[Rfam]
RNA sequence: GCGGUACCGGUUCCCGCCCGCGAGGGCGACCCGGCGACU
Numbered sequence: 001g002c003g004g005u006a007c008c009g010g011u012u013c014c015c016g017c018c019c020g021c022g023a024g025g026g027c028g029a030c031c032c033g034g035c036g037a038c039u
Stems, first nucleotide, its partner, number of pairs: 003039003007034004015028005

About this RNA:
Shown here is a 39-nucleotide RNA, a member of the family "L31-Actinobacteria ribosomal protein leader". Rfam's curators put it in the seed alignment. It is annotated as a cis-regulatory leader.